[Rfam]
RNA sequence: GUCUGAGGUGCCUGAAAUUUUAGCUCAAACCUAAUAAUAGAAGGUGAGCAAAGUUUCAGGUGUAUCAGCUG
Numbered sequence: 001g002u003c004u005g006a007g008g009u010g011c012c013u014g015a016a017a018u019u020u021u022a023g024c025u026c027a028a029a030c031c032u033a034a035u036a037a038u039a040g041a042a043g044g045u046g047a048g049c050a051a052a053g054u055u056u057c058a059g060g061u062g063u064a065u066c067a068g069c070u071g
Base pairs, nucleotide, nucleotide: 003068004067005066006065009062010061011060012059013058014057015056017054018053019052020051021050024048025047026046027045030044031043032042
RNA: mir-87 microRNA precursor family